[Rfam]
Nucleotides: 359
Base pairs, nucleotide, nucleotide: 001355002354003353004352005351006350007349019328020327021326022325023324024323025322026321032316033315034313035312036311037310038309039308041306042302043301044300045299046298047064048063049062050061051060053077054076055075056074057073058072113135114134115133116132117131118130119129120128140177141176142175143174146172147171148170152167153166154165158190159189160188161187162186163185194223195222196221199218207238208237209236210235211234239279241277242276243275244274245273246272247271248270256294257293258292261289263287332348333347334346335345336344
Number, partner (000 for none) and nucleotide at each position: 001355g002354g003353g004352g005351g006350c007349g008000a009000u010000c011000g012000g013000g014000u015000u016000c017000g018000a019328c020327g021326g022325g023324g024323a025322u026321g027000a028000g029000a030000a031000a032316g033315c034313a035312a036311g037310g038309a039308c040000a041306g042302c043301a044300u045299g046298c047064c048063g049062a050061g051060g052000u053077c054076c055075c056074a057073g058072g059000u060051c061050c062049u063048c064047g065000u066000a067000a068000a069000a070000c071000c072058u073057u074056u075055g076054g077053g078000a079000a080000a081000a082000a083000g084000a085000c086000a087000a088000c089000u090000g091000c092000c093000a094000a095000c096000g097000a098000a099000g100000a101000g102000c103000u104000g105000g106000c107000u108000c109000u110000c111000g112000c113135u114134g115133c116132u117131u118130a119129a120128u121000c122000u123000a124000a125000a126000c127000a128120a129119u130118u131117a132116a133115g134114u135113g136000a137000g138000c139000g140177c141176g142175c143174u144000u145000a146172u147171c148170g149000g150000a151000u152167u153166u154165u155000g156000c157000g158190c159189c160188u161187g162186c163185c164000c165154g166153g167152a168000u169000c170148c171147g172146a173000a174143g175142g176141c177140g178000u179000g180000g181000a182000g183000a184000a185163g186162g187161c188160a189159g190158g191000a192000u193000c194223g195222c196221c197000a198000a199218g200000g201000g202000a203000a204000c205000a206000u207238g208237c209236c210235u211234g212000g213000g214000u215000u216000c217000c218199c219000g220000a221196g222195g223194u224000u225000a226000a227000a228000c229000c230000c231000u232000u233000a234211c235210a236209g237208g238207c239279u240000c241277g242276c243275u244274g245273a246272u247271g248270a249000c250000g251000g252000g253000u254000a255000c256294g257293c258292c259000c260000c261289u262000c263287u264000u265000u266000c267000c268000c269000g270248u271247c272246g273245u274244u275243g276242g277241u278000c279239a280000g281000a282000c283000u284000u285000a286000a287263a288000c289261a290000g291000g292258g293257g294256c295000u296000a297000a298046g299045c300044a301043u302042g303000u304000a305000g306041c307000g308039g309038u310037u311036c312035u313034u314000g315033g316032c317000g318000g319000a320000c321026u322025g323024u324023u325022u326021c327020c328019g329000g330000a331000c332348g333347c334346g335345g336344g337000u338000u339000c340000a341000a342000u343000u344336c345335c346334c347333g348332c349007c350006g351005c352004c353003u354002c355001c356000a357000c358000c359000a

A member of the RNA family "transfer-messenger RNA" from Leptospirillum rubarum, 359 nucleotides long. Its family is annotated with RNA catabolic process in the Gene Ontology. It is annotated as a non-coding RNA gene.